This 121-nucleotide RNA sequence from Micrococcus sp. HMSC067E09 belongs to the Rfam family "SAM (S-adenosyl methionine) riboswitch aptamer". The family is grouped with related families in Rfam's "SAM clan". Pairs were carried over by alignment from the consensus structure, which is taken from published work. A search with the family's covariance model found it, with a score of 79 bits. The organism belongs to Micrococcus, within Bacteria.

RNA sequence: AAUCACGAGUUCCCGCCAUUCACGGCCCUGGCCGGCGGGACGGCAACCCUCUCAACGCUGCAGUGGGGUGCUCCAGGUGAGGAUUCGGCCCUCCGGCACCCCGGUUGGGCAAGUACAGCGU
Dot-bracket structure: ((((....(.((((((.......((......)).)))))))(((..(((.((.........))..))).))).........))))..((((.((((....))))..))))...........